[Rfam]
Rfam assigns this 159-nucleotide RNA sequence from Paracidovorax citrulli to the family "ZMP/ZTP riboswitch aptamer (pfl RNA motif)".

RNA sequence: CGAGGGGUACGCGACUGGCGAUAGGCGCGGUGCAUCCGCGAAGGCGGACGCCGCCGCUGACGUGGAAACCGGCAGGCACUUUCACCUGCGAACCACUGGGAAGCGUGCCGCACGGGCUGCAAGGCCCGUUGUGUUCCGCCGUUCGCCUGGGCAGCCCUU
Numbered sequence: 001c002g003a004g005g006g007g008u009a010c011g012c013g014a015c016u017g018g019c020g021a022u023a024g025g026c027g028c029g030g031u032g033c034a035u036c037c038g039c040g041a042a043g044g045c046g047g048a049c050g051c052c053g054c055c056g057c058u059g060a061c062g063u064g065g066a067a068a069c070c071g072g073c074a075g076g077c078a079c080u081u082u083c084a085c086c087u088g089c090g091a092a093c094c095a096c097u098g099g100g101a102a103g104c105g106u107g108c109c110g111c112a113c114g115g116g117c118u119g120c121a122a123g124g125c126c127c128g129u130u131g132u133g134u135u136c137c138g139c140c141g142u143u144c145g146c147c148u149g150g151g152c153a154g155c156c157c158u159u
Base pairs, nucleotide, nucleotide: 004111006109007108008107009106010105011104012103015100016099017147018146019145020144021143062096063095064094065093136154138152139151140150